[Rfam]
RNA sequence: GGCAGAGGGAGCUCGGUUCCCGCGGAUAACGGUUCCGGUAGUACGUCGGAACCUACGUGAGGAAAGUCCCCCCACCGUCCGAGCAGGCAACCGGACGCAAGUCCGGAGUGGGAGACCACUGGCUCUGGAACAGAAACGAUACCACUUCGUGUGACCGAUGCAGUGUGCGAACCGACCCGAGAGGGGAGGGAGUUAACCCACUAAGGGCGCGUGACGUUCGUCACGCCACGUCGUACUGACUCUGUCAGUGCGCGGAUCACGAAGAAUGGAUGGAACGGCGAAUCCUUGCCGGUGCAAGUCCGUGCCAUCAUGGUAGCUCGGACACACGGUGCGGACGCUUAGCCGAAUGCCGAGCCGAACAGAAGGGGGCUUACUCCCCUCAGCC
Number, nucleotide and partner (000 for none) at each position: 001g385002g384003c383004a000005g381006a380007g379008g378009g377010a375011g374012c354013u353014c352015g351016g350017u349018u000019c000020c000021c059022g058023c057024g056025g000026a000027u000028a000029a000030c000031g000032g000033u000034u000035c000036c000037g000038g000039u000040a000041g000042u000043a000044c000045g000046u000047c000048g000049g000050a000051a000052c000053c000054u000055a000056c024057g023058u022059g021060a000061g000062g000063a000064a372065a371066g370067u000068c369069c368070c367071c366072c365073c294074a293075c292076c291077g000078u000079c000080c000081g000082a000083g000084c000085a000086g290087g289088c288089a287090a286091c106092c105093g104094g103095a102096c000097g000098c000099a000100a000101g000102u095103c094104c093105g092106g091107a120108g119109u118110g117111g116112g000113a000114g000115a000116c111117c110118a109119c108120u107121g285122g284123c000124u000125c000126u281127g000128g279129a000130a000131c000132a000133g000134a000135a000136a000137c000138g000139a000140u000141a000142c269143c268144a267145c264146u263147u262148c261149g260150u259151g258152u000153g000154a000155c000156c000157g000158a000159u000160g000161c000162a000163g236164u235165g234166u233167g232168c000169g000170a000171a000172c000173c000174g000175a000176c000177c000178c000179g000180a000181g000182a000183g000184g000185g000186g000187a000188g000189g000190g000191a000192g000193u000194u000195a000196a000197c000198c000199c000200a000201c000202u000203a000204a000205g000206g000207g000208c000209g000210c000211g000212u000213g000214a000215c000216g000217u000218u000219c000220g000221u000222c000223a000224c000225g000226c000227c000228a000229c000230g000231u000232c167233g166234u165235a164236c163237u000238g000239a000240c000241u000242c000243u000244g000245u000246c000247a000248g000249u000250g000251c000252g000253c000254g000255g000256a000257u000258c151259a150260c149261g148262a147263a146264g145265a000266a000267u144268g143269g142270a000271u000272g000273g000274a000275a000276c000277g000278g000279c128280g000281a126282a000283u000284c122285c121286u090287u089288g088289c087290c086291g076292g075293u074294g073295c000296a000297a000298g336299u335300c334301c333302g332303u331304g330305c329306c328307a000308u000309c000310a000311u000312g000313g000314u000315a000316g000317c000318u000319c000320g000321g000322a000323c000324a000325c000326a000327c000328g306329g305330u304331g303332c302333g301334g300335a299336c298337g000338c000339u000340u000341a000342g000343c000344c000345g000346a000347a000348u000349g017350c016351c015352g014353a013354g012355c000356c000357g000358a000359a000360c000361a000362g000363a000364a000365g072366g071367g070368g069369g068370c066371u065372u064373a000374c011375u010376c000377c009378c008379c007380u006381c005382a000383g003384c002385c001

A member of the RNA family "Archaeal RNase P" from Haladaptatus litoreus, 385 nucleotides long. NCBI's taxonomy places the organism under Archaea, Methanobacteriati, Halobacteria, Halobacteriales, Haladaptatus. The match comes from Rfam's covariance-model search (187 bits). The family's RNA type in Rfam is ribozyme. Rfam links the family to the GO terms ribonuclease P activity, tRNA processing and multimeric ribonuclease P complex.